[Rfam]
RNA sequence: GGCCCACAUUGGAGUUGUGUCUUGGCCGCAGCGGUGGCCCUGCCUGCACACUCACGUGGGCCAAGA
Numbered sequence: 001g002g003c004c005c006a007c008a009u010u011g012g013a014g015u016u017g018u019g020u021c022u023u024g025g026c027c028g029c030a031g032c033g034g035u036g037g038c039c040c041u042g043c044c045u046g047c048a049c050a051c052u053c054a055c056g057u058g059g060g061c062c063a064a065g066a
Stems, first nucleotide, its partner, number of pairs: 001062007017049004024039004
A member of the RNA family "Trypanosomatid snoRNA TB9Cs2H1" from Leishmania braziliensis, 66 nucleotides long. The organism belongs to Leishmania braziliensis, within Eukaryota. On this family, see Liang et al., RNA 2005: "A genome-wide analysis of C/D and H/ACA-like small nucleolar RNAs in Trypanosoma brucei reveals a trypanosome-specific pattern of rRNA modification". Rfam links the family to the GO terms nucleolus and RNA processing. The family's consensus secondary structure was predicted with WAR.